[Rfam]
RNA: drz-agam-1 ribozyme
Organism: Hermetia illucens
RNA sequence: CUACCACCAAAUCCUAUCUCCACCUCCACGUGGUGAUCGCUGGAAGUUAUUUGUUAACGAAAAGCUGCAGACGGAGAAGG
Numbered sequence: 001c002u003a004c005c006a007c008c009a010a011a012u013c014c015u016a017u018c019u020c021c022a023c024c025u026c027c028a029c030g031u032g033g034u035g036a037u038c039g040c041u042g043g044a045a046g047u048u049a050u051u052u053g054u055u056a057a058c059g060a061a062a063a064g065c066u067g068c069a070g071a072c073g074g075a076g077a078a079g080g
Base pairs, nucleotide, nucleotide: 013080014079015078017076019074020073022034023033024032045066046065047064048063050061051060052059053058